[Rfam]
RNA sequence: ACCCAAGUCCAGGCCUGCUGACCCCUAGUCCAGUGCUUGUGGUGGCUACUGGGCCCUGAACUAGGGGUCUGGAGACCUGGGUUUGAUCUCC
Numbered sequence: 001a002c003c004c005a006a007g008u009c010c011a012g013g014c015c016u017g018c019u020g021a022c023c024c025c026u027a028g029u030c031c032a033g034u035g036c037u038u039g040u041g042g043u044g045g046c047u048a049c050u051g052g053g054c055c056c057u058g059a060a061c062u063a064g065g066g067g068u069c070u071g072g073a074g075a076c077c078u079g080g081g082u083u084u085g086a087u088c089u090c091c
Stems, first nucleotide, its partner, number of pairs: 008081006015074002018071001020069007028061002031058003035054004